[Rfam]
RNA sequence: AUGAGGGUGCAGGGAGAGAUUGCCGGUGGACGGAUGAAGAGCAGUUUGCGCGCUUCUCGUCUCUGGCGGCGCCGAAGGAGUAAACCGCAUGAUGGCGGUGAAUCUCUCAGGCAAAAGGACCUGUACCGGACG
Number, nucleotide and partner (000 for none) at each position: 001a000002u000003g000004a000005g000006g127007g126008u125009g124010c123011a122012g121013g120014g000015a000016g000017a000018g000019a000020u069021u068022g067023c066024c065025g064026g063027u000028g000029g000030a000031c000032g000033g000034a000035u000036g000037a000038a000039g000040a000041g000042c000043a000044g000045u000046u000047u000048g000049c000050g000051c000052g000053c000054u000055u000056c000057u000058c000059g000060u000061c000062u000063c026064u025065g024066g023067c022068g021069g020070c000071g112072c111073c110074g108075a107076a000077g000078g106079a105080g104081u000082a000083a000084a099085c098086c097087g096088c095089a000090u000091g000092a000093u000094g000095g088096c087097g086098g085099u084100g000101a000102a000103u000104c080105u079106c078107u075108c074109a000110g073111g072112c071113a000114a000115a000116a000117g000118g000119a000120c013121c012122u011123g010124u009125a008126c007127c006128g000129g000130a000131c000132g000
Glycine riboswitch aptamer: a 132-nucleotide RNA from Xylanibacillus composti. A search with the family's covariance model found it, with a score of 63 bits. Its family is annotated with glycine biosynthetic process in the Gene Ontology.